[Rfam]
RNA: Small Cajal body specific RNA 6
Nucleotides: 275
Base pairs, nucleotide, nucleotide: 001275002274003273004272035256036255038253039252040251043232044231047228048227049226050225059221060220061219062218063124064123065122066121067120068119081108082107083106084105085104086103089099132199133198134197135196136195137194138193150178151177152176153175154174155173156172157171158170
Number, partner (000 for none) and nucleotide at each position: 001275g002274g003273u004272c005000g006000a007000u008000g009000a010000u011000g012000a013000g014000a015000c016000g017000u018000a019000a020000a021000a022000g023000g024000u025000c026000u027000g028000a029000u030000a031000a032000c033000c034000c035256g036255u037000a038253a039252u040251c041000c042000u043232c044231u045000a046000g047228c048227c049226c050225c051000c052000g053000c054000c055000u056000c057000c058000g059221c060220u061219c062218c063124c064123a065122g066121c067120a068119g069000c070000c071000c072000c073000u074000g075000c076000u077000u078000u079000a080000c081108c082107c083106a084105g085104c086103a087000u088000g089099c090000u091000c092000u093000a094000g095000u096000c097000g098000u099089g100000c101000a102000c103086u104085g105084c106083u107082g108081g109000u110000c111000u112000u113000c114000a115000g116000g117000a118000a119068c120067u121066g122065c123064u124063g125000a126000c127000a128000c129000a130000c131000u132199g133198g134197a135196u136195g137194u138193g139000a140000c141000a142000u143000c144000a145000c146000a147000a148000u149000c150178u151177g152176a153175g154174u155173c156172a157171a158170u159000c160000a161000a162000g163000a164000g165000a166000u167000c168000c169000c170158a171157u172156u173155g174154g175153c176152u177151c178150a179000g180000u181000g182000u183000g184000a185000u186000g187000a188000u189000g190000a191000c192000u193138u194137g195136c196135a197134u198133c199132c200000c201000a202000c203000a204000g205000a206000a207000c208000c209000a210000a211000u212000c213000c214000g215000c216000a217000u218062g219061g220060a221059g222000c223000a224000a225050g226049g227048g228047g229000g230000c231044g232043g233000g234000g235000c236000a237000g238000a239000g240000g241000a242000c243000a244000g245000g246000g247000a248000g249000a250000u251040g252039a253038u254000c255036a256035c257000a258000a259000g260000u261000u262000u263000u264000c265000a266000a267000g268000c269000u270000g271000a272004g273003a274002c275001c